[Rfam]
RNA sequence: UAGGUUGGGGUCGGCGACCCGAUGGGUAUGCCGAUCUCACACAUCAUGACCUCUGGGAUGAGCGGCAUCAGGGCGGCGGGCGACCUCGUUGCCAGGAUGG
Numbered sequence: 001u002a003g004g005u006u007g008g009g010g011u012c013g014g015c016g017a018c019c020c021g022a023u024g025g026g027u028a029u030g031c032c033g034a035u036c037u038c039a040c041a042c043a044u045c046a047u048g049a050c051c052u053c054u055g056g057g058a059u060g061a062g063c064g065g066c067a068u069c070a071g072g073g074c075g076g077c078g079g080g081c082g083a084c085c086u087c088g089u090u091g092c093c094a095g096g097a098u099g100g
Base pairs, nucleotide, nucleotide: 007038010035011034012033013032014031015030016029017027018026019025073092074091075090076089077088079086080085